A member of the RNA family "MIR7504 microRNA precursor family" from Gossypium armourianum, 122 nucleotides long.
It scores 125 bits against the family's covariance model.
Rfam links the family to the GO terms miRNA-mediated post-transcriptional gene silencing and RISC complex.
The family's consensus secondary structure was predicted with RNAalifold.
RNA sequence: AAUAGGAGAAUGACAAAUCAGAUUUUUCUCCUGAUUUUCAGCUUUUUUCUCCUGAAAAAAUUCAAAUCCAACUAAAAAUGCUAAAAAUCAGGAGUAAAAAUUUGAUUUAUCAUUCUCCUAUU
Numbered sequence: 001a002a003u004a005g006g007a008g009a010a011u012g013a014c015a016a017a018u019c020a021g022a023u024u025u026u027u028c029u030c031c032u033g034a035u036u037u038u039c040a041g042c043u044u045u046u047u048u049c050u051c052c053u054g055a056a057a058a059a060a061u062u063c064a065a066a067u068c069c070a071a072c073u074a075a076a077a078a079u080g081c082u083a084a085a086a087a088u089c090a091g092g093a094g095u096a097a098a099a100a101u102u103u104g105a106u107u108u109a110u111c112a113u114u115c116u117c118c119u120a121u122u
Base pairs, nucleotide, nucleotide: 001122002121003120004119005118006117007116008115009114010113011112012111013110015108016107017106018105019104020103021102022101023100024099025098026097027096028094029093030092031091032090033089034088035087036086037085038084040082041081044078045077046076047075